[Rfam]
RNA sequence: GAAGGUUUUGUGGCCCUUCGGCGUCGCUCUGCGGGGAGAGGCGCCAAACCACCUCAUGCUGCGUUGGCUGAAGACCGUCGUGGUGAGCGAUGAGGAAAAGGCGCACGGGAUGCGUCAGGU
Numbered sequence: 001g002a003a004g005g006u007u008u009u010g011u012g013g014c015c016c017u018u019c020g021g022c023g024u025c026g027c028u029c030u031g032c033g034g035g036g037a038g039a040g041g042c043g044c045c046a047a048a049c050c051a052c053c054u055c056a057u058g059c060u061g062c063g064u065u066g067g068c069u070g071a072a073g074a075c076c077g078u079c080g081u082g083g084u085g086a087g088c089g090a091u092g093a094g095g096a097a098a099a100g101g102c103g104c105a106c107g108g109g110a111u112g113c114g115u116c117a118g119g120u
Base pairs, nucleotide, nucleotide: 001019002018003017004016005015020045021044022043023042024041025040027038028037029036030035050119052095053094054093055092056091057090058084059083061081062080063079065077066076067075100116101115102114103113104112105111

Background: The record is a 120-nucleotide RNA sequence from Actinomadura latina, which matches "Group II catalytic intron D1-D4-2" in Rfam. Pairs were carried over by alignment from the consensus structure. Group II introns are found in rRNA, tRNA and mRNA of organelles in fungi, plants and protists, and also in mRNA in bacteria. Rfam links the family to the GO term Group II intron splicing.